Overview:
IS605-orfB-I RNA: a 226-nucleotide RNA sequence. The family's RNA type in Rfam is small RNA. Rfam's curators put it in the seed alignment. The base pairs follow the family's consensus structure, which is taken from published work.
RNA sequence: AUCCUAUACAGAUGUAUUCAACGCUAGCCAGUUGAGCAUCUCCCUGUAGGAUGAAGUUUUUAAUAGAAAUCCUAACAACAAUUCUCAUUGUGUGGCUCUACGGGUGUGGCUCUACGGUCGAAAUGGGAUGCGUUAGGGUGGAAUAGGUUAACCGUAAGACCUUGAGUUGAAAAACUCUAAAAUUGAGCUAGAGAUGCGGAGUUCUUCAUUUUCUAGUUACGGUUCU
Numbered sequence: 001a002u003c004c005u006a007u008a009c010a011g012a013u014g015u016a017u018u019c020a021a022c023g024c025u026a027g028c029c030a031g032u033u034g035a036g037c038a039u040c041u042c043c044c045u046g047u048a049g050g051a052u053g054a055a056g057u058u059u060u061u062a063a064u065a066g067a068a069a070u071c072c073u074a075a076c077a078a079c080a081a082u083u084c085u086c087a088u089u090g091u092g093u094g095g096c097u098c099u100a101c102g103g104g105u106g107u108g109g110c111u112c113u114a115c116g117g118u119c120g121a122a123a124u125g126g127g128a129u130g131c132g133u134u135a136g137g138g139u140g141g142a143a144u145a146g147g148u149u150a151a152c153c154g155u156a157a158g159a160c161c162u163u164g165a166g167u168u169g170a171a172a173a174a175c176u177c178u179a180a181a182a183u184u185g186a187g188c189u190a191g192a193g194a195u196g197c198g199g200a201g202u203u204c205u206u207c208a209u210u211u212u213c214u215a216g217u218u219a220c221g222g223u224u225c226u
Stems, first nucleotide, its partner, number of pairs: 001052008010041006018035005023029001069139008083128007094119002097116001145162005151223006157183001164177005188216007195208002198205001